Rfam assigns this 85-nucleotide sequence from Hubei virga-like virus 2 to the family "Tymovirus/Pomovirus/Furovirus tRNA-like 3' UTR element". From the family's description: This family represents a tRNA-like structure found in the 3' UTR of Tymoviruses, Pomoviruses and Furovirus. The family's consensus secondary structure is taken from published work. It scores 49 bits against the family's covariance model. The organism belongs to Riboviria, within Viruses. Rfam 15.1 lists 38 matches to the family in 28 species.
RNA sequence: AAAGUGGUCUAGUGGACCACGCCAUCACUACACGGUGGUACACAGAGGUGCGAUCCCUCCGUUUCCGUGGAACGUCAUCCACACC
Numbered sequence: 001a002a003a004g005u006g007g008u009c010u011a012g013u014g015g016a017c018c019a020c021g022c023c024a025u026c027a028c029u030a031c032a033c034g035g036u037g038g039u040a041c042a043c044a045g046a047g048g049u050g051c052g053a054u055c056c057c058u059c060c061g062u063u064u065c066c067g068u069g070g071a072a073c074g075u076c077a078u079c080c081a082c083a084c085c
Stems, first nucleotide, its partner, number of pairs: 004076001005019005012051001021039006045059004060074003067082005